[Rfam]
RNA: Small nucleolar RNA SNORA64/SNORA10 family
Organism: Carlito syrichta
RNA sequence: ACUCUCUUAGCUCUGUUUGAUCACACAGACCCAGUAGGUGCUUGGAGUAUUUUCAGGGAAAGAGAGGAAGGCUGCCCUAAUGCACCACAGAGUAGGCCAAAAUGGCCUCUCUGUUCCUAAGAGUGCGACAGGU
Numbered sequence: 001a002c003u004c005u006c007u008u009a010g011c012u013c014u015g016u017u018u019g020a021u022c023a024c025a026c027a028g029a030c031c032c033a034g035u036a037g038g039u040g041c042u043u044g045g046a047g048u049a050u051u052u053u054c055a056g057g058g059a060a061a062g063a064g065a066g067g068a069a070g071g072c073u074g075c076c077c078u079a080a081u082g083c084a085c086c087a088c089a090g091a092g093u094a095g096g097c098c099a100a101a102a103u104g105g106c107c108u109c110u111c112u113g114u115u116c117c118u119a120a121g122a123g124u125g126c127g128a129c130a131g132g133u
Stems, first nucleotide, its partner, number of pairs: 002066007011058005019043002022040003076121001078119001080118001082116001089112003094108005